Guanidine-II riboswitch aptamer (mini-ykkC): a 42-nucleotide RNA sequence from Ixodes scapularis.
On this family, see Huang et al., Cell Chem Biol 2017: "The Structure of the Guanidine-II Riboswitch".
RNA sequence: CCUCAAGGACGACCUCGAGGACGACGUUUAGAGGACGACCUC
Numbered sequence: 001c002c003u004c005a006a007g008g009a010c011g012a013c014c015u016c017g018a019g020g021a022c023g024a025c026g027u028u029u030a031g032a033g034g035a036c037g038a039c040c041u042c
Base pairs, nucleotide, nucleotide: 001020002019003018004017006015007014008013031042032041033040034039

It scores 34 bits against the family's covariance model. From the family's description: Simpler in structure and has fewer highly conserved nucleotide positions than the ykkC-yxkD leader. The organism belongs to Ixodes, within Eukaryota. The family's consensus secondary structure is taken from published work.